[Rfam]
RNA: MtlS RNA
Organism: Vibrio rumoiensis
RNA sequence: ACUCCCGUUUGAUGUUCUUAAAUUAUAUUGUUGUUGUAAUACGGUUCGCAAAAACCGCUGAUUGCUUAGUACCCAAUUAAUUUACCACACAAUUUAGAAAUAGAACUGAUAACGGGUUUUUCG
Number, nucleotide and partner (000 for none) at each position: 001a000002c000003u000004c116005c115006c114007g113008u112009u111010u000011g000012a000013u000014g106015u105016u104017c103018u102019u000020a000021a000022a101023u100024u099025a000026u096027a095028u000029u091030g090031u089032u000033g088034u087035u000036g085037u084038a083039a082040u000041a000042c057043g056044g055045u054046u053047c000048g000049c000050a000051a000052a000053a046054a045055c044056c043057g042058c000059u079060g078061a077062u076063u075064g074065c000066u000067u000068a000069g000070u000071a000072c000073c000074c064075a063076a062077u061078u060079a059080a000081u000082u039083u038084a037085c036086c000087a034088c033089a031090c030091a029092a000093u000094u000095u027096a026097g000098a000099a024100a023101u022102a018103g017104a016105a015106c014107u000108g000109a000110u000111a009112a008113c007114g006115g005116g004117u000118u000119u000120u000121u000122c000123g000